Rfam assigns this 107-nucleotide RNA sequence from Neoaquamicrobium microcysteis to the family "Rhizobiales sRNA Atu_At1".

[Rfam]
RNA sequence: CUUCGGGCCGCGUCAACCGGGCGCGGCGGUACGGCGAACGAAGGGAUUUUCCCGGUUUCUUCCUUCGGCCAACGAAACGGCAGACGAGCGCCUGUCCCGCCCGGCCC
Numbered sequence: 001c002u003u004c005g006g007g008c009c010g011c012g013u014c015a016a017c018c019g020g021g022c023g024c025g026g027c028g029g030u031a032c033g034g035c036g037a038a039c040g041a042a043g044g045g046a047u048u049u050u051c052c053c054g055g056u057u058u059c060u061u062c063c064u065u066c067g068g069c070c071a072a073c074g075a076a077a078c079g080g081c082a083g084a085c086g087a088g089c090g091c092c093u094g095u096c097c098c099g100c101c102c103g104g105c106c107c
Stems, first nucleotide, its partner, number of pairs: 006106004011023004025101003028097002033092004039067007068081003
Dot-bracket structure: .....((((.((((.....)))).(((((...((((..(((((((...............)))))))(((........))).......))))...)).))).)))).
It is annotated as a small RNA.